RNA sequence: GUGUUCGCAACGUUCUUUCGUUAAGGUUAAACAAAUUAAGCCACGGCCAUGAGUUGCCAUAAAGUUAAUCGCUUGCGGCGUGAUUUUGUCCGCUGCAAUGAUUA
Numbered sequence: 001g002u003g004u005u006c007g008c009a010a011c012g013u014u015c016u017u018u019c020g021u022u023a024a025g026g027u028u029a030a031a032c033a034a035a036u037u038a039a040g041c042c043a044c045g046g047c048c049a050u051g052a053g054u055u056g057c058c059a060u061a062a063a064g065u066u067a068a069u070c071g072c073u074u075g076c077g078g079c080g081u082g083a084u085u086u087u088g089u090c091c092g093c094u095g096c097a098a099u100g101a102u103u104a
Base pairs, nucleotide, nucleotide: 003058005056007054008053009028010027011026013024014023035050036049041045066104067103068102069101070100071096072095075093076092077091078090080086
Record summary
The family of this 104-nucleotide RNA from Alteromonadales bacterium alter-6D02 is "Vibrio RNA AS9". From the family's description: Identified by direct cloning an parallel sequencing experiments with 5S/tRNA depletion. Confirmed by Northern blot. By type it is an antisense RNA.